[Rfam]
RNA sequence: UGGGCUGUAUCUUAUAUGAAUAGCACCACUUUUAUAAAAUGAGACAUAUUUUAAAUAGUCUGCCUUGAUCCGAGCUGGACUAGGACAGAGGG
Numbered sequence: 001u002g003g004g005c006u007g008u009a010u011c012u013u014a015u016a017u018g019a020a021u022a023g024c025a026c027c028a029c030u031u032u033u034a035u036a037a038a039a040u041g042a043g044a045c046a047u048a049u050u051u052u053a054a055a056u057a058g059u060c061u062g063c064c065u066u067g068a069u070c071c072g073a074g075c076u077g078g079a080c081u082a083g084g085a086c087a088g089a090g091g092g
Stems, first nucleotide, its partner, number of pairs: 001028003004024005010019002060088003063084003067080001069079003
Background
The record is a 92-nucleotide RNA sequence from Alkalihalobacillus trypoxylicola, which matches "pan motif" in Rfam. NCBI's taxonomy places the organism under Bacteria, Bacillati, Bacillota, Caryophanales, Alkalihalobacillus. It scores 67 bits against the family's covariance model. The family's RNA type in Rfam is cis-regulatory element.